Source information: A member of the RNA family "small nucleolar RNA snoR114" from Gossypium harknessii, 84 nucleotides long. By type it is a C/D-box small nucleolar RNA. Pairs were carried over by alignment from the consensus structure, which was predicted with RNAalifold.

RNA sequence: GAGCUGUGAUGAUUAUUGCGCUCUCGUGAUGGUUAGGGUCAUCAUAGUCGUCUGGUUUCAGAUAAUAUCUGCGCUGCUGAGCUU
Numbered sequence: 001g002a003g004c005u006g007u008g009a010u011g012a013u014u015a016u017u018g019c020g021c022u023c024u025c026g027u028g029a030u031g032g033u034u035a036g037g038g039u040c041a042u043c044a045u046a047g048u049c050g051u052c053u054g055g056u057u058u059c060a061g062a063u064a065a066u067a068u069c070u071g072c073g074c075u076g077c078u079g080a081g082c083u084u
Stems, first nucleotide, its partner, number of pairs: 001084004